[Rfam]
RNA sequence: CUGAGGAGCAGGGCUUAGCUGCUUGUGAGCAGCGUCCACACCAAGCUGUGCUCACAGUGGCUACGUUCUGUCCUCCAG
Number, nucleotide and partner (000 for none) at each position: 001c000002u000003g000004a000005g000006g000007a000008g000009c000010a000011g068012g067013g066014c065015u000016u063017a062018g061019c060020u059021g000022c000023u000024u000025g055026u054027g053028a052029g051030c050031a049032g000033c000034g000035u000036c000037c000038a000039c000040a000041c000042c000043a000044a000045g000046c000047u000048g000049u031050g030051c029052u028053c027054a026055c025056a000057g000058u000059g020060g019061c018062u017063a016064c000065g014066u013067u012068c011069u000070g000071u000072c000073c000074u000075c000076c000077a000078g000
Description: A member of the RNA family "mir-27 microRNA precursor family" from Tupaia belangeri, 78 nucleotides long. A search with the family's covariance model found it, with a score of 66 bits.